[Rfam]
RNA sequence: UCUGAUCAUUCCGUGUCAAUCCACUAUUAUGGCACGGCGUGUUAAAAGGGAGGAAGGGUCAGACCGCAGGACUUGCGGUGCGGUAUUGUGGAGACAUACCGCAAGGUUUCCAUCAAGCCUGAUGGUUACAAGGCGGCUUCUUGCAAAGAUUCAGCCGUCAUAGUCGAAUGUUAUGGCA
Numbered sequence: 001u002c003u004g005a006u007c008a009u010u011c012c013g014u015g016u017c018a019a020u021c022c023a024c025u026a027u028u029a030u031g032g033c034a035c036g037g038c039g040u041g042u043u044a045a046a047a048g049g050g051a052g053g054a055a056g057g058g059u060c061a062g063a064c065c066g067c068a069g070g071a072c073u074u075g076c077g078g079u080g081c082g083g084u085a086u087u088g089u090g091g092a093g094a095c096a097u098a099c100c101g102c103a104a105g106g107u108u109u110c111c112a113u114c115a116a117g118c119c120u121g122a123u124g125g126u127u128a129c130a131a132g133g134c135g136g137c138u139u140c141u142u143g144c145a146a147a148g149a150u151u152c153a154g155c156c157g158u159c160a161u162a163g164u165c166g167a168a169u170g171u172u173a174u175g176g177c178a
Base pairs, nucleotide, nucleotide: 009039011037012036013035014034015033016032017031018030064078065077066076067075070165071164072163073162079103080102081101082100083099084098085097086096088095089094106129107128110125111124112123113122114121132159133158134157135156136155137154138153139149140148141147
The record is a 178-nucleotide sequence, which matches "malK-I RNA" in Rfam.